[Rfam]
RNA sequence: GACAUGGCAUACAAGGUCACUCUCAGAAUGACCGACGCGCAAGCGUCCAGUAAGACGAGCGUGAAGCCGAUGUUGCGUCGUACGUUUUGAAAAACGAC
Numbered sequence: 001g002a003c004a005u006g007g008c009a010u011a012c013a014a015g016g017u018c019a020c021u022c023u024c025a026g027a028a029u030g031a032c033c034g035a036c037g038c039g040c041a042a043g044c045g046u047c048c049a050g051u052a053a054g055a056c057g058a059g060c061g062u063g064a065a066g067c068c069g070a071u072g073u074u075g076c077g078u079c080g081u082a083c084g085u086u087u088u089g090a091a092a093a094a095c096g097a098c
Stems, first nucleotide, its partner, number of pairs: 001079003005075006015068002019062002022059003029053001034047005083096003
RNA: Archaeal large subunit ribosomal RNA, nucleotides 541 to 638
Organism: Halonotius sp. J07HN4